RNA sequence: GAACUUGUUUUCUAGGGUUCCGCGGCAGAUGAAGGCUGCCGGUCAGGUCCGAGAGAAGACACACGAUGCGCGUCAUCGUGCACACGGAGGGAGAAAAGCCCGGGAGGA
Numbered sequence: 001g002a003a004c005u006u007g008u009u010u011u012c013u014a015g016g017g018u019u020c021c022g023c024g025g026c027a028g029a030u031g032a033a034g035g036c037u038g039c040c041g042g043u044c045a046g047g048u049c050c051g052a053g054a055g056a057a058g059a060c061a062c063a064c065g066a067u068g069c070g071c072g073u074c075a076u077c078g079u080g081c082a083c084a085c086g087g088a089g090g091g092a093g094a095a096a097a098g099c100c101c102g103g104g105a106g107g108a
Base pairs, nucleotide, nucleotide: 007060008059009058010057011056012055015050016049020047021046022044023041024040025039026038027037028036062080063079064078065077066076067075068074083103085106089101090100091099
Shown here is a 108-nucleotide sequence from Paenibacillus whitsoniae, a member of the family "Guanidine-I riboswitch aptamer". Pairs were carried over by alignment from the consensus structure.